Potassium channel RNA editing signal: a 114-nucleotide RNA from Tigriopus californicus.
Nucleotides: 114
Base pairs, nucleotide, nucleotide: 001114002113004111005110008107009106010105011104014101015100018097021095022094037077038076049063050062051061
Number, partner (000 for none) and nucleotide at each position: 001114g002113u003000g004111g005110g006000u007000u008107a009106c010105g011104g012000g013000g014101a015100c016000a017000u018097g019000g020000u021095g022094c023000c024000c025000a026000a027000g028000a029000c030000c031000u032000a033000u034000g035000c036000c037077g038076g039000c040000c041000u042000c043000a044000u045000c046000g047000u048000a049063g050062g051061c052000u053000c054000g055000c056000u057000u058000u059000g060000u061051g062050c063049u064000u065000u066000g067000u068000c069000a070000g071000g072000u073000g074000u075000a076038c077037u078000g079000g080000u081000g082000a083000u084000u085000g086000c087000u088000u089000u090000a091000c092000c093000c094022g095021u096000g097018c098000c099000c100015g101014u102000g103000a104011u105010u106009g107008u108000c109000u110005c111004c112000a113002a114001c
NCBI's taxonomy places the organism under Eukaryota, Pancrustacea, Copepoda, Neocopepoda, Tigriopus.